[Rfam]
RNA: Plastid-ccsA-ndhD-1 3UTR RNA
RNA sequence: CAACCGGCGAGAACCACGUGAAUCAAGUAAUGUAGUGAUUCACGUGGUUCUCGCAA
Numbered sequence: 001c002a003a004c005c006g007g008c009g010a011g012a013a014c015c016a017c018g019u020g021a022a023u024c025a026a027g028u029a030a031u032g033u034a035g036u037g038a039u040u041c042a043c044g045u046g047g048u049u050c051u052c053g054c055a056a
Stems, first nucleotide, its partner, number of pairs: 007054019